[Rfam]
RNA sequence: GGCAAUUGAAGUAGAGAUUGUGCUGCUACGCACCCUCUGAGUCAAAAGAAAUGCGGGAAGGGGCACACCCGCCAAUUGCC
Numbered sequence: 001g002g003c004a005a006u007u008g009a010a011g012u013a014g015a016g017a018u019u020g021u022g023c024u025g026c027u028a029c030g031c032a033c034c035c036u037c038u039g040a041g042u043c044a045a046a047a048g049a050a051a052u053g054c055g056g057g058a059a060g061g062g063g064c065a066c067a068c069c070c071g072c073c074a075a076u077u078g079c080c
Stems, first nucleotide, its partner, number of pairs: 001080008011029004020066005031048001032042002035039001053072005
RNA: skipping-rope RNA